[Rfam]
RNA sequence: CUCUCGAUCCGGGCCCCUCUGGCGGCCGUCUGCCCUUAUGGGCGGCGUCCGUGAUGUCGGAUCGCGUGG
Numbered sequence: 001c002u003c004u005c006g007a008u009c010c011g012g013g014c015c016c017c018u019c020u021g022g023c024g025g026c027c028g029u030c031u032g033c034c035c036u037u038a039u040g041g042g043c044g045g046c047g048u049c050c051g052u053g054a055u056g057u058c059g060g061a062u063c064g065c066g067u068g069g
Base pairs, nucleotide, nucleotide: 006063007062008061009060010059011058012057022052023051024050025049027047028046029045